[Rfam]
RNA sequence: AAGUAAGGACGACCUUACCGCUCACUUUAAUUCUGGGGACGACCCCA
Number, nucleotide and partner (000 for none) at each position: 001a000002a000003g018004u017005a016006a015007g014008g013009a000010c000011g000012a000013c008014c007015u006016u005017a004018c003019c000020g000021c000022u000023c000024a000025c000026u000027u000028u000029a000030a000031u000032u000033c000034u047035g046036g045037g044038g043039a000040c000041g000042a000043c038044c037045c036046c035047a034
RNA: Guanidine-II riboswitch aptamer (mini-ykkC)